[Rfam]
A member of the RNA family "SAM riboswitch aptamer (S box leader)" from Niallia endozanthoxylica, 151 nucleotides long. NCBI's taxonomy places the organism under Bacteria, Bacillati, Bacilli, Bacillaceae, Niallia.
RNA sequence: CUCUUAUCCCGAGCUGGUGGAGGGACAGACCCUAUGAAACCCAGCAACCUGUUAAUGAAAGAAGCGUAUACUAGAAAUGAUUAUACGUAUGCAAAAUCAUUAGCAAAGGUGCUAAUCUGUGGCAAGGAUUUUUUUCCUUGAACGAUAAGAG
Numbered sequence: 001c002u003c004u005u006a007u008c009c010c011g012a013g014c015u016g017g018u019g020g021a022g023g024g025a026c027a028g029a030c031c032c033u034a035u036g037a038a039a040c041c042c043a044g045c046a047a048c049c050u051g052u053u054a055a056u057g058a059a060a061g062a063a064g065c066g067u068a069u070a071c072u073a074g075a076a077a078u079g080a081u082u083a084u085a086c087g088u089a090u091g092c093a094a095a096a097u098c099a100u101u102a103g104c105a106a107a108g109g110u111g112c113u114a115a116u117c118u119g120u121g122g123c124a125a126g127g128a129u130u131u132u133u134u135u136c137c138u139u140g141a142a143c144g145a146u147a148a149g150a151g
Base pairs, nucleotide, nucleotide: 001151002150003149004148005147006146007145008144013042016041017040018039022032023031024030026122028120029118043113044112045111046110048109049108050105051104052103053102054101055100056099057098058097123140124139125138126137127136128135